RNA sequence: AAUAGUUGUGUAUUCAAUGUAUCGUAUAUUUAACCAGAUAUUUUCGGUGGUUAAGUUUCUACCCUAGUACCGUAAACUAGGACUACGUACAUUCUCCUUCUUAAA
Numbered sequence: 001a002a003u004a005g006u007u008g009u010g011u012a013u014u015c016a017a018u019g020u021a022u023c024g025u026a027u028a029u030u031u032a033a034c035c036a037g038a039u040a041u042u043u044u045c046g047g048u049g050g051u052u053a054a055g056u057u058u059c060u061a062c063c064c065u066a067g068u069a070c071c072g073u074a075a076a077c078u079a080g081g082a083c084u085a086c087g088u089a090c091a092u093u094c095u096c097c098u099u100c101u102u103a104a105a
Stems, first nucleotide, its partner, number of pairs: 018091004023087004030054007063081005

Purine riboswitch aptamer: a 105-nucleotide RNA sequence from Acholeplasma hippikon. Taxonomically the source falls in Acholeplasma (Bacteria, Bacillati, Mycoplasmatota, Acholeplasmatales). About the family: Riboswitches are metabolite binding domains within certain messenger RNAs that serve as precision sensors for their corresponding targets.